RNA sequence: AGAGGUUGCAAGUCAGACCACAUCAGAAGCACUCAUAGUGCAGCCCUGUCAGAUUCCAGUCAGUCUGCAAAUUCUGCU
Numbered sequence: 001a002g003a004g005g006u007u008g009c010a011a012g013u014c015a016g017a018c019c020a021c022a023u024c025a026g027a028a029g030c031a032c033u034c035a036u037a038g039u040g041c042a043g044c045c046c047u048g049u050c051a052g053a054u055u056c057c058a059g060u061c062a063g064u065c066u067g068c069a070a071a072u073u074c075u076g077c078u
Base pairs, nucleotide, nucleotide: 016045018043022078024076025075026074027073028072029041030040031039050067051066052065053064054063055062
Notes:
The record is a 78-nucleotide RNA sequence from Alligator mississippiensis, which matches "Mammalian CPEB3 ribozyme" in Rfam. The family's consensus secondary structure is taken from published work. The organism belongs to Alligator, within Eukaryota. Rfam 15.1 lists 5,706 matches to the family in 197 species. It scores 43 bits against the family's covariance model.